[Rfam]
A member of the RNA family "c-di-AMP riboswitch aptamer (ydaO/yuaA leader)" from Paenibacillus validus, 159 nucleotides long.
Rfam describes the family as follows. This family represents a conserved RNA structure found upstream of the ydaO and yuaA genes in Bacillus subtilis and related genes in other bacteria.
The match comes from Rfam's covariance-model search (78 bits).

RNA sequence: AGUUUUUAAAAGCCGAAUCGAACAGUUCAUUUUCUGAACGUACGGGGGACGCAUCACAUGGGGUGAAUAAUUGAGUUCCGCGAUUGCCGCGGGCCAGCUUAGGGAAAAUCCUCUUCCCGAACCCGACAACUAACCUCGGAGGCUGACAGGAGGGAUACA
Numbered sequence: 001a002g003u004u005u006u007u008a009a010a011a012g013c014c015g016a017a018u019c020g021a022a023c024a025g026u027u028c029a030u031u032u033u034c035u036g037a038a039c040g041u042a043c044g045g046g047g048g049a050c051g052c053a054u055c056a057c058a059u060g061g062g063g064u065g066a067a068u069a070a071u072u073g074a075g076u077u078c079c080g081c082g083a084u085u086g087c088c089g090c091g092g093g094c095c096a097g098c099u100u101a102g103g104g105a106a107a108a109u110c111c112u113c114u115u116c117c118c119g120a121a122c123c124c125g126a127c128a129a130c131u132a133a134c135c136u137c138g139g140a141g142g143c144u145g146a147c148a149g150g151a152g153g154g155a156u157a158c159a
Base pairs, nucleotide, nucleotide: 011144012143013142014141019040020039043138044137045136046135047134052060053059061124062123063122069099071097072096102118103117104116105115